[Rfam]
RNA sequence: ACCUUGAUACUUGCGUUUAGUCAUAGUCCGAGCGUUGAAGCGGCCAUCAGGCCGUGAGCCGUCGCAGGCAUUGAGAACGCCUUGCCAUAAGAAUGGGGAGAGGUGAAAUUCCUAUGG
Numbered sequence: 001a002c003c004u005u006g007a008u009a010c011u012u013g014c015g016u017u018u019a020g021u022c023a024u025a026g027u028c029c030g031a032g033c034g035u036u037g038a039a040g041c042g043g044c045c046a047u048c049a050g051g052c053c054g055u056g057a058g059c060c061g062u063c064g065c066a067g068g069c070a071u072u073g074a075g076a077a078c079g080c081c082u083u084g085c086c087a088u089a090a091g092a093a094u095g096g097g098g099a100g101a102g103g104u105g106a107a108a109u110u111c112c113u114a115u116g117g
Base pairs, nucleotide, nucleotide: 012114013080014079015078016077017076018075081100082099083098085096086095087094101113102112103111
Notes
Shown here is a 117-nucleotide RNA sequence from [Clostridium] methylpentosum, a member of the family "pemK RNA". It scores 41 bits against the family's covariance model. The organism belongs to [Clostridium] methylpentosum, within Bacteria.